A member of the RNA family "Selenocysteine insertion sequence 1" from Propithecus coquereli, 65 nucleotides long.
By type it is a cis-regulatory element.

RNA sequence: GCCAGAUGAUGACGGCCUGGGCAGAAACCCACCUUCUGGGCUGUCCAUGUCCGAGUUCCCCUGGC
Numbered sequence: 001g002c003c004a005g006a007u008g009a010u011g012a013c014g015g016c017c018u019g020g021g022c023a024g025a026a027a028c029c030c031a032c033c034u035u036c037u038g039g040g041c042u043g044u045c046c047a048u049g050u051c052c053g054a055g056u057u058c059c060c061c062u063g064g065c
Base pairs, nucleotide, nucleotide: 001065002064003063004062005061014051015050016049018047019046020045021044022043023042029039030038031037